[Rfam]
RNA sequence: GCCGGUGUAGCUCAACUGGCAGAGCACCUGACUUGUAAUCAGGGGGUUGAGGGUUCGAUUCCUUUCGCCGGCA
Numbered sequence: 001g002c003c004g005g006u007g008u009a010g011c012u013c014a015a016c017u018g019g020c021a022g023a024g025c026a027c028c029u030g031a032c033u034u035g036u037a038a039u040c041a042g043g044g045g046g047u048u049g050a051g052g053g054u055u056c057g058a059u060u061c062c063u064u065u066c067g068c069c070g071g072c073a
Stems, first nucleotide, its partner, number of pairs: 001072007010025004027043005049065005

The family of this 73-nucleotide sequence from Aneurinibacillus sp. XH2 is "tRNA". NCBI's taxonomy places the organism under Bacteria, Bacillota, Bacilli, Caryophanales, Aneurinibacillus. Rfam's curators write: Transfer RNA (tRNA) molecules are approximately 80 nucleotides in length. Rfam 15.1 lists 5,335,975 matches to the family in 14,413 species. The family's consensus secondary structure is taken from published work. The family's RNA type in Rfam is transfer RNA. The match comes from Rfam's covariance-model search (69 bits).